RNA sequence: GUAAAUGCUCAUCCUGCUUCUUGUGAUAGCUUUAAGCUUCAUAAACUAUAAACUAUAAACUAUUGGAUGACGCAGAGCCAAUUUGAUGUGCCUAUUGUCCACGUUAUCGAUGCAUAAAUAUCCAUCACCAACCGGACGCAACGUUGAGUGAGGCACAAUCCGUCUGUAGAACAGAUUGUAUUUUGACACCUAUCAAAAGAUAGGUGUUUUUUG
Numbered sequence: 001g002u003a004a005a006u007g008c009u010c011a012u013c014c015u016g017c018u019u020c021u022u023g024u025g026a027u028a029g030c031u032u033u034a035a036g037c038u039u040c041a042u043a044a045a046c047u048a049u050a051a052a053c054u055a056u057a058a059a060c061u062a063u064u065g066g067a068u069g070a071c072g073c074a075g076a077g078c079c080a081a082u083u084u085g086a087u088g089u090g091c092c093u094a095u096u097g098u099c100c101a102c103g104u105u106a107u108c109g110a111u112g113c114a115u116a117a118a119u120a121u122c123c124a125u126c127a128c129c130a131a132c133c134g135g136a137c138g139c140a141a142c143g144u145u146g147a148g149u150g151a152g153g154c155a156c157a158a159u160c161c162g163u164c165u166g167u168a169g170a171a172c173a174g175a176u177u178g179u180a181u182u183u184u185g186a187c188a189c190c191u192a193u194c195a196a197a198a199g200a201u202a203g204g205u206g207u208u209u210u211u212u213g
Base pairs, nucleotide, nucleotide: 001078002077006074007073008072009070010069011068012067014066015065019057021055027051029049087157088156089155090154091153092152093151097137098136099135100134109126110125111124112123164174165173166172185208186207187206188205189204190203191202192201193200194199
About this RNA: GlmZ RNA activator of glmS mRNA: a 213-nucleotide sequence from Arsenophonus endosymbiont of Bemisia tabaci. Clan: Glm clan. Lineage of the source: Bacteria > Pseudomonadota > Gammaproteobacteria > Arsenophonus > Arsenophonus endosymbiont of Bemisia tabaci. From the family's description: This RNA was discovered in E. coli during a large scale screen. The sraJ gene was expressed in early logarithmic phase, but its level decreased with cell growth. Specific cleavage products of this RNA were found. Identified in Yersinia pseudotuberculosis as Ysr248/153/sR016. The family's RNA type in Rfam is small RNA.